[Rfam]
RNA sequence: CCGAGCAGCCGGGGAAUUAGCGGCUCCCUGUACCUUCAAUCCGCUAUAGUAGGGGUGAUGUCCUGCCUCGGGUUUGCAGCCGCGGAGCUGCCUUGUAUAAGUGGCGUUGAUCUUCGGGUCUUGCGCGACGGGAAUCUGUGAACCAGGUCAGGUCAGGAAUGAAGCAGCCUUAAGCGGAACCUCCCGGGUGCCGCAAGGGUGCCUGGAGUGAGCUAACUGUAGAAGUAACGUCCGUAUGUUGGAAUUCAAAGCAGGAUGCUCGU
Numbered sequence: 001c002c003g004a005g006c007a008g009c010c011g012g013g014g015a016a017u018u019a020g021c022g023g024c025u026c027c028c029u030g031u032a033c034c035u036u037c038a039a040u041c042c043g044c045u046a047u048a049g050u051a052g053g054g055g056u057g058a059u060g061u062c063c064u065g066c067c068u069c070g071g072g073u074u075u076g077c078a079g080c081c082g083c084g085g086a087g088c089u090g091c092c093u094u095g096u097a098u099a100a101g102u103g104g105c106g107u108u109g110a111u112c113u114u115c116g117g118g119u120c121u122u123g124c125g126c127g128a129c130g131g132g133a134a135u136c137u138g139u140g141a142a143c144c145a146g147g148u149c150a151g152g153u154c155a156g157g158a159a160u161g162a163a164g165c166a167g168c169c170u171u172a173a174g175c176g177g178a179a180c181c182u183c184c185c186g187g188g189u190g191c192c193g194c195a196a197g198g199g200u201g202c203c204u205g206g207a208g209u210g211a212g213c214u215a216a217c218u219g220u221a222g223a224a225g226u227a228a229c230g231u232c233c234g235u236a237u238g239u240u241g242g243a244a245u246u247c248a249a250a251g252c253a254g255g256a257u258g259c260u261c262g263u
Base pairs, nucleotide, nucleotide: 002262003261004260005259006258008056009055010054011029012028013027014026015025017023018022033053034052035051037049062255063254064253065252066251068249070247071246072245073244074243075242077241078240079239080238082235083234084233085232086231089227090226093224094223096221097220098219101217102216103214104213105212112208113207114206115205116204117203118202119201120197121196122195123194124193125192126188129186130185131184132183133182135178136177137176138175139174145170146169147168148167153162154161155160
The family of this 263-nucleotide RNA sequence from Clostridium sp. SY8519 is "Bacterial large signal recognition particle RNA". The match comes from Rfam's covariance-model search (175 bits). The family's RNA type in Rfam is non-coding RNA gene. The organism belongs to Clostridium, within Bacteria. The literature on the family includes a 2003 paper in Nucleic Acids Res by Rosenblad et al., "SRPDB: Signal Recognition Particle Database". Rfam's curators write: The signal recognition particle (SRP) is a universally conserved ribonucleoprotein involved in the co-translational targeting of proteins to membranes. Rfam links the family to the GO terms SRP-dependent cotranslational protein targeting to membrane, signal sequence recognition and signal recognition particle, plasma membrane targeting.